RNA: mir-15 microRNA precursor family
RNA sequence: ACCGGCAGUGCUGUAGCAGCACAGAAUGGUUUGUGAGUUACACAGGGAUGCAGGCCGUGCUGUACUGCCGCAGUAAGGCCUGG
Numbered sequence: 001a002c003c004g005g006c007a008g009u010g011c012u013g014u015a016g017c018a019g020c021a022c023a024g025a026a027u028g029g030u031u032u033g034u035g036a037g038u039u040a041c042a043c044a045g046g047g048a049u050g051c052a053g054g055c056c057g058u059g060c061u062g063u064a065c066u067g068c069c070g071c072a073g074u075a076a077g078g079c080c081u082g083g
Base pairs, nucleotide, nucleotide: 002082004080005079006078013071014070016068017067018066019065021063022062023061024060026058027057028056029055030054031053032052033051034050035049